This 105-nucleotide sequence from Pantoea vagans belongs to the Rfam family "Tryptophan operon leader".

[Rfam]
RNA sequence: AAAGGUUGGUGGCGCGAUGAUCCCUUGAACGGGCGACGUCGUCGUGCACAAUUUGCGUAACCGCUGUGCAGAUACCUGAGCCCGCCACCGAGCGGGCUUUUUUUU
Numbered sequence: 001a002a003a004g005g006u007u008g009g010u011g012g013c014g015c016g017a018u019g020a021u022c023c024c025u026u027g028a029a030c031g032g033g034c035g036a037c038g039u040c041g042u043c044g045u046g047c048a049c050a051a052u053u054u055g056c057g058u059a060a061c062c063g064c065u066g067u068g069c070a071g072a073u074a075c076c077u078g079a080g081c082c083c084g085c086c087a088c089c090g091a092g093c094g095g096g097c098u099u100u101u102u103u104u105u
Stems, first nucleotide, its partner, number of pairs: 009045004014039003018035001022033003079098007086090001
Dot-bracket structure: ........((((.(((.(...(((......))).).)))..)))).................................((((((((...).))))))).......
Pairs were carried over by alignment from the consensus structure, which is taken from published work.
At least 6 amino acid operons are known to be regulated by attenuation.
The literature on the family includes a 1982 paper in Annu Rev Genet by Kolter and Yanofsky, "Attenuation in amino acid biosynthetic operons".
It scores 49 bits against the family's covariance model.